[Rfam]
RNA sequence: CGCCCCGCCCGACAGUGUACCACCCUGGGUUCCCACUUGCGUAUGACUCGUGUGAACACAGCUGGUGGUAUAUCAGUCGGUCUGGGCAG
Numbered sequence: 001c002g003c004c005c006c007g008c009c010c011g012a013c014a015g016u017g018u019a020c021c022a023c024c025c026u027g028g029g030u031u032c033c034c035a036c037u038u039g040c041g042u043a044u045g046a047c048u049c050g051u052g053u054g055a056a057c058a059c060a061g062c063u064g065g066u067g068g069u070a071u072a073u074c075a076g077u078c079g080g081u082c083u084g085g086g087c088a089g
Base pairs, nucleotide, nucleotide: 008080009079011077015074016072017071019069020068022066023065024064025061026060027059029057031055032054
The family of this 89-nucleotide RNA from Rhipicephalus sanguineus is "mir-317 microRNA precursor family". The family has 25 seed sequences and 153 matches in Rfam 15.1. Rfam links the family to the GO terms RISC complex and miRNA-mediated post-transcriptional gene silencing. NCBI's taxonomy places the organism under Eukaryota, Protostomia, Parasitiformes, Rhipicephalus, Rhipicephalus. Pairs were carried over by alignment from the consensus structure, which was predicted with RNAalifold.